Record summary: Rfam assigns this 277-nucleotide sequence from Paenalkalicoccus suaedae to the family "BsrG".
[Rfam]
RNA sequence: UACAUUUGCCGUGUAUCUCAAUAGCGAUCUGCUGGCCCCUGAAAGGGGGUGAUAAAAUGUCAACUGAAGCUUAUCAAGCUCUAAUGGUAUUUAUUAGCUUCCAAUCAUCAUUAAUUGGUUUGGGCUCUUUAAUUGUUGCCGUGUUGACUUUAAAAAACAAAAAAUAGACCUCCCUUGAGCUCUGGAAAAGUUAAAGGGAUAAGUCUAUUAGGAAAAAUACUCGAGCCAGCCCCUUAAGGACAGCUUGUGUACAGACCGGAGUGUUGGCGCACUCCGG
Numbered sequence: 001u002a003c004a005u006u007u008g009c010c011g012u013g014u015a016u017c018u019c020a021a022u023a024g025c026g027a028u029c030u031g032c033u034g035g036c037c038c039c040u041g042a043a044a045g046g047g048g049g050u051g052a053u054a055a056a057a058u059g060u061c062a063a064c065u066g067a068a069g070c071u072u073a074u075c076a077a078g079c080u081c082u083a084a085u086g087g088u089a090u091u092u093a094u095u096a097g098c099u100u101c102c103a104a105u106c107a108u109c110a111u112u113a114a115u116u117g118g119u120u121u122g123g124g125c126u127c128u129u130u131a132a133u134u135g136u137u138g139c140c141g142u143g144u145u146g147a148c149u150u151u152a153a154a155a156a157a158c159a160a161a162a163a164a165u166a167g168a169c170c171u172c173c174c175u176u177g178a179g180c181u182c183u184g185g186a187a188a189a190g191u192u193a194a195a196g197g198g199a200u201a202a203g204u205c206u207a208u209u210a211g212g213a214a215a216a217a218u219a220c221u222c223g224a225g226c227c228a229g230c231c232c233c234u235u236a237a238g239g240a241c242a243g244c245u246u247g248u249g250u251a252c253a254g255a256c257c258g259g260a261g262u263g264u265u266g267g268c269g270c271a272c273u274c275c276g277g
Base pairs, nucleotide, nucleotide: 001251002250003249004248005247008244009243011241012228013227014224017179018178019177020176021175024172026169028167033052035050036049037048038047039046040045059148060147061146062145063144064143072113073112122140123139191213192212231239232238256277257276258275259274260273261272262271263270264269
Dot-bracket structure: (((((..((.((((..(((((..(.(.(....(.((((((....)))))).)......((((((.......((......................................))........((...............))..))))))..................).)..)..)))))...........((...................))..........)..))..((.....)).).))..)))))....(((((((((....)))))))))
It is annotated as a small RNA. Rfam's curators write: bsrE, bsrG and bsrH pair through intermolecular interactions with antisense sRNAs. They form type I toxin/antitoxin system that includes an mRNA encoding for a short, toxic peptide (bsrE, bsrG and bsrH) and an antitoxin that is comprised of an antisense RNA. bsrG encodes a 39-amino-acid toxin, and the 180 nucleotide antisense sRNA called SR4 acts as the antitoxin (they overlap by 123 nucleotides). SR4 interaction with the 3'UTR of bsrG RNA promotes bsrG degradation and inhibits its translation.